[Rfam]
RNA sequence: UCGUUAUCACGAAAGCGGGAGGGAAUAGACCCUAUGAUCGCUUAGCAACCCUACACUUGUAGAAGGUGCUGCAUUCUACCUUUUCAAUUGAUUUUUUUUCAGAAAAGGCAAGAUAACCA
Numbered sequence: 001u002c003g004u005u006a007u008c009a010c011g012a013a014a015g016c017g018g019g020a021g022g023g024a025a026u027a028g029a030c031c032c033u034a035u036g037a038u039c040g041c042u043u044a045g046c047a048a049c050c051c052u053a054c055a056c057u058u059g060u061a062g063a064a065g066g067u068g069c070u071g072c073a074u075u076c077u078a079c080c081u082u083u084u085c086a087a088u089u090g091a092u093u094u095u096u097u098u099u100c101a102g103a104a105a106a107g108g109c110a111a112g113a114u115a116a117c118c119a
Stems, first nucleotide, its partner, number of pairs: 001119001003117006013043005021032003026078004044070004049066002051062004074111001079108006
Dot-bracket structure: (.((((((....(((((...(((..[[[[)))......)))))((((.((((((....))))..))))))...(]]]]((((((..................))))))..))))))).)
The record is a 119-nucleotide RNA from Flavobacterium columnare, which matches "SAM riboswitch aptamer (S box leader)" in Rfam.
NCBI's taxonomy places the organism under Bacteria, Pseudomonadati, Flavobacteriaceae, Flavobacterium, Flavobacterium columnare.
Gene Ontology term of the family: regulation of gene expression.
The SAM riboswitch is found upstream of a number of genes which code for proteins involved in methionine or cysteine biosynthesis in Gram-positive bacteria. The SAM riboswitch acts at the level of transcription termination control. The predicted structure consists of a complex stem-loop region followed by a single stem loop terminator region.